The record is a 281-nucleotide RNA sequence from Pseudolycoriella hygida, which matches "Nuclear RNase P" in Rfam.
RNA sequence: CUUGUAAAAAUCUUGCAUUUGGGGCACCCAUACGAGUACCUAGUUACUCAAAACUAACGCCUCGGGAAGGUCUGAGACAUGGUGGACACUCUCUCGUUUUGUGGGAGAAAUUUCGUUUACAUCCCAGCCGGAUGCUUACUUAAUUUCAGUAAGGCAGGGGGACAAGAAAUCAUGGAACUCUUCAUUGAGUUCCAUUGAAAUCUCCUGUCACCAGCUAUUUUAGUGCAAUGUGCAGGCUGAACAUAUCGUUCAGAACUCAAUUCAGACUAAUCUUUUACAAG
Numbered sequence: 001c002u003u004g005u006a007a008a009a010a011u012c013u014u015g016c017a018u019u020u021g022g023g024g025c026a027c028c029c030a031u032a033c034g035a036g037u038a039c040c041u042a043g044u045u046a047c048u049c050a051a052a053a054c055u056a057a058c059g060c061c062u063c064g065g066g067a068a069g070g071u072c073u074g075a076g077a078c079a080u081g082g083u084g085g086a087c088a089c090u091c092u093c094u095c096g097u098u099u100u101g102u103g104g105g106a107g108a109a110a111u112u113u114c115g116u117u118u119a120c121a122u123c124c125c126a127g128c129c130g131g132a133u134g135c136u137u138a139c140u141u142a143a144u145u146u147c148a149g150u151a152a153g154g155c156a157g158g159g160g161g162a163c164a165a166g167a168a169a170u171c172a173u174g175g176a177a178c179u180c181u182u183c184a185u186u187g188a189g190u191u192c193c194a195u196u197g198a199a200a201u202c203u204c205c206u207g208u209c210a211c212c213a214g215c216u217a218u219u220u221u222a223g224u225g226c227a228a229u230g231u232g233c234a235g236g237c238u239g240a241a242c243a244u245a246u247c248g249u250u251c252a253g254a255a256c257u258c259a260a261u262u263c264a265g266a267c268u269a270a271u272c273u274u275u276u277a278c279a280a281g
Stems, first nucleotide, its partner, number of pairs: 001281004007275003012236007021063005034049005039043001072265005081212004120134005135153006154208007175192005237253006
Dot-bracket structure: ((((..(((..(((((((..(((((........((((((...).))))).........)))))........[[[[[....((((...................................(((((.....)))))((((((.......))))))(((((((..............(((((........))))).........))))))))))).................)))))))((((((.....)))))).......]]]]].......)))..))))

NCBI's taxonomy places the organism under Eukaryota, Eumetazoa, Protostomia, Panorpida, Pseudolycoriella. Ribonuclease P (RNase P) is a ubiquitous endoribonuclease, found in archaea, bacteria and eukarya as well as chloroplasts and mitochondria. Its best characterised activity is the generation of mature 5'-ends of tRNAs by cleaving the 5'-leader elements of precursor-tRNAs.